[Rfam]
RNA sequence: UUCUUAUCAAGAGAGGUGGAGGGACUGGCCCUGUGAAACCCAACAACCGGCAUUCUCAUUUGAAUGCAAAGGUGUUAAUUCCUGCAGAAUUAUGUCUGAGAGAUAAGAA
Numbered sequence: 001u002u003c004u005u006a007u008c009a010a011g012a013g014a015g016g017u018g019g020a021g022g023g024a025c026u027g028g029c030c031c032u033g034u035g036a037a038a039c040c041c042a043a044c045a046a047c048c049g050g051c052a053u054u055c056u057c058a059u060u061u062g063a064a065u066g067c068a069a070a071g072g073u074g075u076u077a078a079u080u081c082c083u084g085c086a087g088a089a090u091u092a093u094g095u096c097u098g099a100g101a102g103a104u105a106a107g108a109a
Base pairs, nucleotide, nucleotide: 001109002108003107004106005105006104007103008102013041015040016039017038021031022030023029025084027082028081042076043075044074045073047072048071050067051066052065053064054063080101085098086097087096088095

Shown here is a 109-nucleotide RNA from Clostridium acidisoli, a member of the family "SAM riboswitch aptamer (S box leader)". Gene Ontology term of the family: regulation of gene expression. Rfam describes the family as follows. The SAM riboswitch is found upstream of a number of genes which code for proteins involved in methionine or cysteine biosynthesis in Gram-positive bacteria.